[Rfam]
RNA sequence: ACUGGACAAAAUUAAAAUGCUAUUCUGUCAUUGUUAAUAGUUCAUGUGGGAAAUGACAAGAGAGUGUUUUAAUUUUGUCAAGU
Numbered sequence: 001a002c003u004g005g006a007c008a009a010a011a012u013u014a015a016a017a018u019g020c021u022a023u024u025c026u027g028u029c030a031u032u033g034u035u036a037a038u039a040g041u042u043c044a045u046g047u048g049g050g051a052a053a054u055g056a057c058a059a060g061a062g063a064g065u066g067u068u069u070u071a072a073u074u075u076u077g078u079c080a081a082g083u
Stems, first nucleotide, its partner, number of pairs: 001083003005079006012072010023061002026058005032052001034051002037047003
The family of this 83-nucleotide sequence from Orycteropus afer is "mir-3660 microRNA precursor family". Gene Ontology terms of the family: miRNA-mediated post-transcriptional gene silencing and RISC complex. It scores 78 bits against the family's covariance model. Pairs were carried over by alignment from the consensus structure, which was predicted with RNAalifold.